[Rfam]
RNA sequence: GCCGUAUGCUAGGGGAGCGUUAAGCUGAGAGGAAGGUCACUCCUUCGACCCUCUGAACCUGAACUGGGUAAUUCCAGCGAAGGGAAGCAUUAUAGUUCUCCU
Numbered sequence: 001g002c003c004g005u006a007u008g009c010u011a012g013g014g015g016a017g018c019g020u021u022a023a024g025c026u027g028a029g030a031g032g033a034a035g036g037u038c039a040c041u042c043c044u045u046c047g048a049c050c051c052u053c054u055g056a057a058c059c060u061g062a063a064c065u066g067g068g069u070a071a072u073u074c075c076a077g078c079g080a081a082g083g084g085a086a087g088c089a090u091u092a093u094a095g096u097u098c099u100c101c102u
Stems, first nucleotide, its partner, number of pairs: 006090005011052004017025002032046005058083003064077004